[Rfam]
RNA sequence: GUAGAUGUAGUUCAACGGUAGAACGAUUAAUUGUGGUUUAAUAGGCUCUAGGUUCGAUUCCUAGUAUUUACC
Numbered sequence: 001g002u003a004g005a006u007g008u009a010g011u012u013c014a015a016c017g018g019u020a021g022a023a024c025g026a027u028u029a030a031u032u033g034u035g036g037u038u039u040a041a042u043a044g045g046c047u048c049u050a051g052g053u054u055c056g057a058u059u060c061c062u063a064g065u066a067u068u069u070a071c072c
Base pairs, nucleotide, nucleotide: 001071002070003069004068005067006066007065010024011023012022013021026042027041028040029039030038048064049063050062051061052060
Rfam assigns this 72-nucleotide RNA sequence from Fusarium piperis to the family "tRNA". The match comes from Rfam's covariance-model search (62 bits). The family's RNA type in Rfam is transfer RNA. The source organism's lineage runs through Eukaryota, Dikarya, sordariomyceta, Hypocreales and Fusarium solani species complex.